[Rfam]
RNA: Small nucleolar RNA SNORA77
RNA sequence: GCAGACUCACUCUGUGCUGAACUGCAGCCUUCAGUUCAGGUGCUUUUCUGUCUGCAAGAGUAAGAGCUCACAGGAGUGACGAUGGCCUUCUUUCCUGUAGAAGGCUGUUACAGUUGCUGCUGGGACAUCCUU
Numbered sequence: 001g002c003a004g005a006c007u008c009a010c011u012c013u014g015u016g017c018u019g020a021a022c023u024g025c026a027g028c029c030u031u032c033a034g035u036u037c038a039g040g041u042g043c044u045u046u047u048c049u050g051u052c053u054g055c056a057a058g059a060g061u062a063a064g065a066g067c068u069c070a071c072a073g074g075a076g077u078g079a080c081g082a083u084g085g086c087c088u089u090c091u092u093u094c095c096u097g098u099a100g101a102a103g104g105c106u107g108u109u110a111c112a113g114u115u116g117c118u119g120c121u122g123g124g125a126c127a128u129c130c131u132u
Stems, first nucleotide, its partner, number of pairs: 001055006014043003017039004022034003071122003075118003079114002083110002087107001090104002